Rfam assigns this 92-nucleotide RNA sequence from Gillisella ampelina to the family "Rhizobiales sRNA Atu_Ti1". The sequence is in the family's curated seed alignment.

RNA sequence: GUCCAUGUUGCGGCGGACCAGAGCCAGAACGCCCCGAGCGUAAUGGCAGCGGCCGGCCAGAAUCUCGUCGUCAUGACGAGCAGGCCGGCCGU
Number, nucleotide and partner (000 for none) at each position: 001g018002u017003c016004c015005a000006u000007g000008u000009u000010g000011c000012g000013g000014c000015g004016g003017a002018c001019c000020a000021g000022a000023g047024c046025c045026a044027g000028a000029a000030c000031g039032c038033c000034c000035c000036g000037a000038g032039c031040g000041u000042a000043a000044u026045g025046g024047c023048a000049g092050c091051g090052g089053c088054c087055g086056g085057c084058c083059a000060g000061a000062a000063u082064c080065u079066c078067g077068u076069c075070g000071u000072c000073a000074u000075g069076a068077c067078g066079a065080g064081c000082a063083g058084g057085c056086c055087g054088g053089c052090c051091g050092u049